Rfam assigns this 148-nucleotide RNA sequence from Mizugakiibacter sediminis to the family "Group II catalytic intron D1-D4-7". From the family's description: Group II introns are found in rRNA, tRNA and mRNA of organelles in fungi, plants and protists, and also in mRNA in bacteria. On this family, see Bonen and Vogel, Trends Genet 2001: "The ins and outs of group II introns". Lineage of the source: Bacteria > Gammaproteobacteria > Lysobacterales > Rhodanobacteraceae > Mizugakiibacter. A search with the family's covariance model found it, with a score of 109 bits. Rfam links the family to the GO term Group II intron splicing.
RNA sequence: CCCGGUGUUCAGCCACCGGUAGCCUAGGAGCAGCGCGGGAUUGGCAACAAUCCUGUGCCGAGCGCUCUGACAAUGUAGCCACCUCUCGGGGUACGCUGAACCCCGUGAGGGGUCGGCGUGAUUCUGGAAGAUGCAUCCGGAUGAGGCG
Numbered sequence: 001c002c003c004g005g006u007g008u009u010c011a012g013c014c015a016c017c018g019g020u021a022g023c024c025u026a027g028g029a030g031c032a033g034c035g036c037g038g039g040a041u042u043g044g045c046a047a048c049a050a051u052c053c054u055g056u057g058c059c060g061a062g063c064g065c066u067c068u069g070a071c072a073a074u075g076u077a078g079c080c081a082c083c084u085c086u087c088g089g090g091g092u093a094c095g096c097u098g099a100a101c102c103c104c105g106u107g108a109g110g111g112g113u114c115g116g117c118g119u120g121a122u123u124c125u126g127g128a129a130g131a132u133g134c135a136u137c138c139g140g141a142u143g144a145g146g147c148g
Stems, first nucleotide, its partner, number of pairs: 002019006027068005033058011081092004093119004103110002123141006